[Rfam]
RNA: LOOT RNA
RNA sequence: GGCCUAAACCAGACGGGGUAGCUCUCUGGCAUGGCAUAAACCGGUAAAAGAUAGAGAACCCAUCAUGGGAGCACUUUUACCGGUCCUGUCGGGAAACUGGCAGUGGGUAGCCGAGCUACC
Numbered sequence: 001g002g003c004c005u006a007a008a009c010c011a012g013a014c015g016g017g018g019u020a021g022c023u024c025u026c027u028g029g030c031a032u033g034g035c036a037u038a039a040a041c042c043g044g045u046a047a048a049a050g051a052u053a054g055a056g057a058a059c060c061c062a063u064c065a066u067g068g069g070a071g072c073a074c075u076u077u078u079a080c081c082g083g084u085c086c087u088g089u090c091g092g093g094a095a096a097c098u099g100g101c102a103g104u105g106g107g108u109a110g111c112c113g114a115g116c117u118a119c120c
Stems, first nucleotide, its partner, number of pairs: 002035003009029005015023001041083010056072001059069003086103007106120005